[Rfam]
RNA sequence: GAAGGUGUACCAUGUGCCCUUAAAGGUGAACCCAGUGCACCUUCAUGAACCGUGGUACACCUUUAAGAACUUGGUACGCCU
Numbered sequence: 001g002a003a004g005g006u007g008u009a010c011c012a013u014g015u016g017c018c019c020u021u022a023a024a025g026g027u028g029a030a031c032c033c034a035g036u037g038c039a040c041c042u043u044c045a046u047g048a049a050c051c052g053u054g055g056u057a058c059a060c061c062u063u064u065a066a067g068a069a070c071u072u073g074g075u076a077c078g079c080c081u
Stems, first nucleotide, its partner, number of pairs: 003081010014070002019067010030056003035050002038047002